[Rfam]
RNA: Plastid-rps12 3UTR RNA
Organism: Capsicum annuum
RNA sequence: GGUUUCCUUUGGUAUAAAUCCAAUCACCUGAAUUUAAGAUGAUAAGAAAUUUUCCAUUAGUAACAAAUGGUUACUAUUAAGAGGAGGAAAUCUUAU
Numbered sequence: 001g002g003u004u005u006c007c008u009u010u011g012g013u014a015u016a017a018a019u020c021c022a023a024u025c026a027c028c029u030g031a032a033u034u035u036a037a038g039a040u041g042a043u044a045a046g047a048a049a050u051u052u053u054c055c056a057u058u059a060g061u062a063a064c065a066a067a068u069g070g071u072u073a074c075u076a077u078u079a080a081g082a083g084g085a086g087g088a089a090a091u092c093u094u095a096u
Base pairs, nucleotide, nucleotide: 009023010022011021012020052086053085054084055083056077057076059075060074061073062072063071064070